RNA sequence: AUACAUAUUAAUAUUCCGAGCUUAUAUCUCUAAAACUUUUAACAAGAUAGUCAUGAGAUUUUAGCCGAUGGGUGUAUCAAGAGAAAUCUAUAUGCCUCCCACAGUUGGAAAGGAAAAAAUAAGGCAACCUU
Numbered sequence: 001a002u003a004c005a006u007a008u009u010a011a012u013a014u015u016c017c018g019a020g021c022u023u024a025u026a027u028c029u030c031u032a033a034a035a036c037u038u039u040u041a042a043c044a045a046g047a048u049a050g051u052c053a054u055g056a057g058a059u060u061u062u063a064g065c066c067g068a069u070g071g072g073u074g075u076a077u078c079a080a081g082a083g084a085a086a087u088c089u090a091u092a093u094g095c096c097u098c099c100c101a102c103a104g105u106u107g108g109a110a111a112g113g114a115a116a117a118a119a120u121a122a123g124g125c126a127a128c129c130u131u
Base pairs, nucleotide, nucleotide: 004124006122012117014115015114016113017112020065021064022063024061026059027058028057029056030055035051036050037049070097071096072095073094074093075092076091077090080089081088082087098108099107
Shown here is a 131-nucleotide sequence from Tissierella creatinophila, a member of the family "Molybdenum/Tungsten riboswitch aptamer (Moco RNA motif)". The match comes from Rfam's covariance-model search (68 bits). The source organism's lineage runs through Bacteria, Bacillati, Bacillota, Tissierellales and Tissierella creatinophila. Pairs were carried over by alignment from the consensus structure, which is taken from published work.